This 68-nucleotide RNA from Macaca mulatta belongs to the Rfam family "mir-297 microRNA precursor family".
NCBI's taxonomy places the organism under Eukaryota, Vertebrata, Teleostomi, Cercopithecoidea, Macaca.
Gene Ontology terms of the family: RISC complex, cellular response to leukemia inhibitory factor and miRNA-mediated post-transcriptional gene silencing.
Pairs were carried over by alignment from the consensus structure, which was predicted with RNAalifold.

RNA sequence: UGUAUGUAUGUGUGCAUGUGCAUAUAUGUGUGUGUGUAUAUAUAUAUGUAUUAUGUACUCAUAUAUCA
Numbered sequence: 001u002g003u004a005u006g007u008a009u010g011u012g013u014g015c016a017u018g019u020g021c022a023u024a025u026a027u028g029u030g031u032g033u034g035u036g037u038a039u040a041u042a043u044a045u046a047u048g049u050a051u052u053a054u055g056u057a058c059u060c061a062u063a064u065a066u067c068a
Stems, first nucleotide, its partner, number of pairs: 005065006012058002016056005024051011